RNA sequence: GCCGACGUAGCUCAAUGGUAGAGCAACCGCCUUGUAAGCGGUUGGUUACGGGUCCGAUUCCCGUCGUCGGCU
Numbered sequence: 001g002c003c004g005a006c007g008u009a010g011c012u013c014a015a016u017g018g019u020a021g022a023g024c025a026a027c028c029g030c031c032u033u034g035u036a037a038g039c040g041g042u043u044g045g046u047u048a049c050g051g052g053u054c055c056g057a058u059u060c061c062c063g064u065c066g067u068c069g070g071c072u
Stems, first nucleotide, its partner, number of pairs: 001071007010024004026042005048064005